The family of this 119-nucleotide RNA from Muraenolepis orangiensis is "Small nucleolar RNA SNORD67". Rfam links the family to the GO terms RNA processing and nucleolus. About the family: snoRNA HBII-166 belongs to the C/D family of snoRNAs. For this family Rfam cites "RNomics: an experimental approach that identifies 201 candidates for novel, small, non-messenger RNAs in mouse" (Huttenhofer et al., EMBO J, 2001). A search with the family's covariance model found it, with a score of 58 bits.
RNA sequence: GGAUACAAAGUGAUGAGUUGCACUGUUGGUGGGGUUGCAUUUGGCUGCAGUGGCGGCCGUGGGCCCAUCCCGAAUCUCCAUGGUGACACACGAUGUGCACAGGGGCCAUCUGAUUGUAU
Numbered sequence: 001g002g003a004u005a006c007a008a009a010g011u012g013a014u015g016a017g018u019u020g021c022a023c024u025g026u027u028g029g030u031g032g033g034g035u036u037g038c039a040u041u042u043g044g045c046u047g048c049a050g051u052g053g054c055g056g057c058c059g060u061g062g063g064c065c066c067a068u069c070c071c072g073a074a075u076c077u078c079c080a081u082g083g084u085g086a087c088a089c090a091c092g093a094u095g096u097g098c099a100c101a102g103g104g105g106c107c108a109u110c111u112g113a114u115u116g117u118a119u
Stems, first nucleotide, its partner, number of pairs: 004118001006116003026073004030067004038061003044057005